[Rfam]
RNA: c-di-AMP riboswitch aptamer (ydaO/yuaA leader)
Organism: Bacillus sp. OK048
RNA sequence: UUAAAUAUUCGGCCUAAACCCAUUAUCUAGGGUACGGAGGAACCAAUUAAGUGGGGUUAAUUCUACAAUGUAGAAAGGAUGAGAUUUUCUUUCGCCAUCCUACCCGUCAGCUAACUUCGUCGGCUAAUGCGAAGGAGGUC
Dot-bracket structure: ..........((((...(((..........)))((((((....((......))(((.....((((.....))))..((((................))))..))).........)))))).))))...............
Numbered sequence: 001u002u003a004a005a006u007a008u009u010c011g012g013c014c015u016a017a018a019c020c021c022a023u024u025a026u027c028u029a030g031g032g033u034a035c036g037g038a039g040g041a042a043c044c045a046a047u048u049a050a051g052u053g054g055g056g057u058u059a060a061u062u063c064u065a066c067a068a069u070g071u072a073g074a075a076a077g078g079a080u081g082a083g084a085u086u087u088u089c090u091u092u093c094g095c096c097a098u099c100c101u102a103c104c105c106g107u108c109a110g111c112u113a114a115c116u117u118c119g120u121c122g123g124c125u126a127a128u129g130c131g132a133a134g135g136a137g138g139u140c
Stems, first nucleotide, its partner, number of pairs: 011125004018033003034120006044053002054105003062074004077100004